[Rfam]
RNA sequence: ACAGUCUGAAAAUCACUUGGGGUCUUCUCUGGCCCCUGGUGUGAUAACUGUGCUGAUAGCAGAGGGAGCAUUAAACUCAUUGCCCAUGGUAAAGUGUGGGGAGGGAUACUCAUGUUCCUAUUAUC
Numbered sequence: 001a002c003a004g005u006c007u008g009a010a011a012a013u014c015a016c017u018u019g020g021g022g023u024c025u026u027c028u029c030u031g032g033c034c035c036c037u038g039g040u041g042u043g044a045u046a047a048c049u050g051u052g053c054u055g056a057u058a059g060c061a062g063a064g065g066g067a068g069c070a071u072u073a074a075a076c077u078c079a080u081u082g083c084c085c086a087u088g089g090u091a092a093a094g095u096g097u098g099g100g101g102a103g104g105g106a107u108a109c110u111c112a113u114g115u116u117c118c119u120a121u122u123a124u125c
Stems, first nucleotide, its partner, number of pairs: 006050001008048001010045001014041003021034004065118001067116005077106002080103002085098003
Dot-bracket structure: .....(.(.(...(((....((((......))))....)))...)..).)..............(.(((((.....((.((...(((........)))...)).)).....))))).).......
Rfam assigns this 125-nucleotide RNA from Bucco capensis to the family "Small nucleolar RNA ACA64". For this family Rfam cites "A computational screen for mammalian pseudouridylation guide H/ACA RNAs" (Schattner et al., RNA, 2006). It scores 50 bits against the family's covariance model. It is annotated as an H/ACA-box small nucleolar RNA.